[Rfam]
RNA sequence: CCUCCGAAGCAUUAUAUCAAACGUAAGUAGCUUGUCCUUCGGGAGGGCAAAAACGGAUGCGAUGAACGAGGAA
Numbered sequence: 001c002c003u004c005c006g007a008a009g010c011a012u013u014a015u016a017u018c019a020a021a022c023g024u025a026a027g028u029a030g031c032u033u034g035u036c037c038u039u040c041g042g043g044a045g046g047g048c049a050a051a052a053a054c055g056g057a058u059g060c061g062a063u064g065a066a067c068g069a070g071g072a073a
Stems, first nucleotide, its partner, number of pairs: 001071004009060005022055003030048003035044002
RAGATH-18 RNA: a 73-nucleotide RNA sequence. The family's consensus secondary structure is taken from published work. Actinobacteria, Firmicutes, Fusobacteria, Thermotogae (1 example).